This 76-nucleotide RNA sequence from Sphenodon punctatus belongs to the Rfam family "mir-216 microRNA precursor family". The match comes from Rfam's covariance-model search (54 bits).
RNA sequence: AGAUUGCAGAAUCUCUACUGGUAACUGUGAGAUUGCUACCGAGACAUCACAUUUGCCUGCAGAGAUUUCCCAGUCU
Numbered sequence: 001a002g003a004u005u006g007c008a009g010a011a012u013c014u015c016u017a018c019u020g021g022u023a024a025c026u027g028u029g030a031g032a033u034u035g036c037u038a039c040c041g042a043g044a045c046a047u048c049a050c051a052u053u054u055g056c057c058u059g060c061a062g063a064g065a066u067u068u069c070c071c072a073g074u075c076u
Stems, first nucleotide, its partner, number of pairs: 003074004009068008020058002023054002026051005
Record summary:
The organism belongs to Sphenodon, within Eukaryota. The base pairs follow the family's consensus structure, which was predicted with WAR.